[Rfam]
RNA sequence: UCGGGCCUUUUUGCGGUCUGGGCUUGCUGUGCCCCCCAGCUCUCAGGAAGCCCUUACCCCAAAAAGGAUCCG
Numbered sequence: 001u002c003g004g005g006c007c008u009u010u011u012u013g014c015g016g017u018c019u020g021g022g023c024u025u026g027c028u029g030u031g032c033c034c035c036c037c038a039g040c041u042c043u044c045a046g047g048a049a050g051c052c053c054u055u056a057c058c059c060c061a062a063a064a065a066g067g068a069u070c071c072g
Stems, first nucleotide, its partner, number of pairs: 007066007015058003020053004025048001027046002
Dot-bracket structure: ......(((((((.(((..((((.(.((................)).).))))..))).)))))))......
This 72-nucleotide RNA from Coturnix japonica belongs to the Rfam family "mir-129 microRNA precursor family".
Its family is annotated with RISC complex, gene silencing by miRNA and miRNA-mediated post-transcriptional gene silencing in the Gene Ontology.
A search with the family's covariance model found it, with a score of 75 bits.
NCBI's taxonomy places the organism under Eukaryota, Metazoa, Chordata, Perdicinae, Coturnix.